[Rfam]
A member of the RNA family "c-di-GMP-I riboswitch aptamer" from Olavius sp. associated proteobacterium Delta 1, 86 nucleotides long.
The family's consensus secondary structure is taken from published work.
NCBI's taxonomy places the organism under Bacteria, delta/epsilon subdivisions, Deltaproteobacteria.
RNA sequence: CAGGAAAAAAGGCAAACCUAUCGAAAGAUUGGGGCGCAAAGCCACCGGCCUAAGUCCGGAAUGGAUAGGGCAGCGGGGCUGCCGAG
Number, nucleotide and partner (000 for none) at each position: 001c000002a000003g000004g000005a000006a000007a000008a000009a000010a000011g000012g037013c036014a000015a000016a000017c032018c031019u000020a029021u028022c027023g000024a000025a000026a000027g022028a021029u020030u000031g018032g017033g000034g000035c000036g013037c012038a000039a000040a080041g079042c078043c077044a000045c076046c075047g074048g071049c070050c069051u000052a000053a000054g000055u065056c064057c063058g062059g000060a000061a000062u058063g057064g056065a055066u000067a000068g000069g050070g049071c048072a000073g000074c047075g046076g045077g043078g042079c041080u040081g000082c000083c000084g000085a000086g000